[Rfam]
Nucleotides: 114
Stems, first nucleotide, its partner, number of pairs: 001114008013042005021031003026084003043077004048073002050069001052067004081106001086103006
Number, partner (000 for none) and nucleotide at each position: 001114c002113u003112u004111u005110u006109a007108u008107c009000g010000a011000g012000a013042g014041a015040g016039g017038u018000g019000g020000a021031g022030g023029g024000a025000a026084a027083g028082g029023c030022c031021c032000u033000a034000u035000g036000a037000a038017a039016c040015c041014u042013c043077g044076g045075c046074a047000a048073c049072c050069u051000g052067c053066a054065a055064a056000c057000g058000u059000a060000u061000u062000u063000g064055u065054u066053u067052g068000a069050a070000a071000a072049g073048g074046u075045g076044c077043c078000a079000a080000u081106u082028c083027c084026u085000a086103c087102u088101c089100u090099a091098a092000g093000u094000g095000a096000a097000c098091u099090u100089a101088g102087a103086g104000a105000g106081a107008g108007a109006u110005a111004a112003g113002a114001g

The family of this 114-nucleotide sequence from Alkaliphilus oremlandii is "SAM riboswitch aptamer (S box leader)".
Clan: SAM clan.
The sequence is in the family's curated seed alignment.